[Rfam]
RNA sequence: AUACUUACCUGGACGGGGUCUAUGGAUGAUCAUGAAGAUCCAUGGCCUAGGUUAGCGACCUCCAUUGCACACUAAGGAGGGGUGCUCUCCUAAGAUCUCCCCAAUGAGGGAGAGUCUACGUCAUAAUUUGUACCUGAGGGGGUACGCGUCCGCGCGGCCCCUCC
Numbered sequence: 001a002u003a004c005u006u007a008c009c010u011g012g013a014c015g016g017g018g019u020c021u022a023u024g025g026a027u028g029a030u031c032a033u034g035a036a037g038a039u040c041c042a043u044g045g046c047c048u049a050g051g052u053u054a055g056c057g058a059c060c061u062c063c064a065u066u067g068c069a070c071a072c073u074a075a076g077g078a079g080g081g082g083u084g085c086u087c088u089c090c091u092a093a094g095a096u097c098u099c100c101c102c103a104a105u106g107a108g109g110g111a112g113a114g115u116c117u118a119c120g121u122c123a124u125a126a127u128u129u130g131u132a133c134c135u136g137a138g139g140g141g142g143u144a145c146g147c148g149u150c151c152g153c154g155c156g157g158c159c160c161c162u163c164c
Stems, first nucleotide, its partner, number of pairs: 012122004016048005023042005049091003055085003059081003062077002093117003096113003100109002138163005145156004
RNA: U1 spliceosomal RNA